[Rfam]
RNA: Purine riboswitch aptamer
Organism: Bacillus sp. V59.32b
RNA sequence: AAUCAAAUAUAUUAAUAUCCUUGUAUAUUAUCAGUGUAUAGUCUGAUAGUUUCUACCUGGCAGCCGUAAAAAUGCUGGACUACAAGGAAGUAUGCAAUAAUA
Numbered sequence: 001a002a003u004c005a006a007a008u009a010u011a012u013u014a015a016u017a018u019c020c021u022u023g024u025a026u027a028u029u030a031u032c033a034g035u036g037u038a039u040a041g042u043c044u045g046a047u048a049g050u051u052u053c054u055a056c057c058u059g060g061c062a063g064c065c066g067u068a069a070a071a072a073u074g075c076u077g078g079a080c081u082a083c084a085a086g087g088a089a090g091u092a093u094g095c096a097a098u099a100a101u102a
Stems, first nucleotide, its partner, number of pairs: 018088008029048006057078006
Dot-bracket structure: .................((((((((...((((((........))))))........((((((..........))))))..))))))))..............